[Rfam]
RNA: glmS glucosamine-6-phosphate activated ribozyme aptamer
Organism: Ruminococcus sp. CAG:177
RNA sequence: GUCAUAAAAAUAGCGCCGGGUCUGCAAGCACUGAAGGCUGCGAGCCUUUGCAGAUGACGAGGAAGAAGUCAUCGAAAUUUUCGGCGGAUGCUUCUUGCCCCAUAAGUGCGGGGGACACAGGCUCUCUUAUGAAACAGCGCGGCGACGCGCAGACAGAGGGGAGAGCAAUGCACAAA
Numbered sequence: 001g002u003c004a005u006a007a008a009a010a011u012a013g014c015g016c017c018g019g020g021u022c023u024g025c026a027a028g029c030a031c032u033g034a035a036g037g038c039u040g041c042g043a044g045c046c047u048u049u050g051c052a053g054a055u056g057a058c059g060a061g062g063a064a065g066a067a068g069u070c071a072u073c074g075a076a077a078u079u080u081u082c083g084g085c086g087g088a089u090g091c092u093u094c095u096u097g098c099c100c101c102a103u104a105a106g107u108g109c110g111g112g113g114g115a116c117a118c119a120g121g122c123u124c125u126c127u128u129a130u131g132a133a134a135c136a137g138c139g140c141g142g143c144g145a146c147g148c149g150c151a152g153a154c155a156g157a158g159g160g161g162a163g164a165g166c167a168a169u170g171c172a173c174a175a176a
Stems, first nucleotide, its partner, number of pairs: 020055008064095005072084004096117002099114003121166007135152001137150005